Background:
Shown here is a 124-nucleotide RNA sequence from Aquabacterium sp., a member of the family "ZMP/ZTP riboswitch aptamer (pfl RNA motif)". It scores 54 bits against the family's covariance model. The literature on the family includes a 2015 paper in Nat Struct Mol Biol by Jones and Ferre-D'Amare, "Recognition of the bacterial alarmone ZMP through long-distance association of two RNA subdomains".
RNA sequence: CACUUGCCGCGCGACUGGCGAUAGACGGCCCAACCAGGGCCUGAGGUGGUGAACCACCGGGAAGCGCGGCCGGCACCAGGCAUCUGGCCUGAUUGCUGUUGCGCCGUUCGCCUGGGCAGCCCUC
Numbered sequence: 001c002a003c004u005u006g007c008c009g010c011g012c013g014a015c016u017g018g019c020g021a022u023a024g025a026c027g028g029c030c031c032a033a034c035c036a037g038g039g040c041c042u043g044a045g046g047u048g049g050u051g052a053a054c055c056a057c058c059g060g061g062a063a064g065c066g067c068g069g070c071c072g073g074c075a076c077c078a079g080g081c082a083u084c085u086g087g088c089c090u091g092a093u094u095g096c097u098g099u100u101g102c103g104c105c106g107u108u109c110g111c112c113u114g115g116g117c118a119g120c121c122c123u124c
Base pairs, nucleotide, nucleotide: 003073004072006070007069008068009067010066011065012064015061016060017112018111019110020109021108046057047056048055049054103117104116105115